[Rfam]
The family of this 121-nucleotide RNA sequence from Pleionea mediterranea is "Ribosomal S15 leader". A reference for the family is Benard et al. (1996), "Pseudoknot and translational control in the expression of the S15 ribosomal protein", Biochimie. It scores 70 bits against the family's covariance model. About the family: The E. coli Ribosomal S15 gene 5' UTR can form two alternative structures.
RNA sequence: GCUUUGAACUGAAUUAGUGAUUGGUUCUGAGCUAUUUUUUGAAAAGUCACUAACGGAGAAAUAUAUGUCAUUAAGUGCAGAAGCGAAAGCGAGCAUUGUUGCUGAACACGGUCGUGGUGAA
Numbered sequence: 001g002c003u004u005u006g007a008a009c010u011g012a013a014u015u016a017g018u019g020a021u022u023g024g025u026u027c028u029g030a031g032c033u034a035u036u037u038u039u040u041g042a043a044a045a046g047u048c049a050c051u052a053a054c055g056g057a058g059a060a061a062u063a064u065a066u067g068u069c070a071u072u073a074a075g076u077g078c079a080g081a082a083g084c085g086a087a088a089g090c091g092a093g094c095a096u097u098g099u100u101g102c103u104g105a106a107c108a109c110g111g112u113c114g115u116g117g118u119g120a121a
Stems, first nucleotide, its partner, number of pairs: 007026006050075001055072002058069001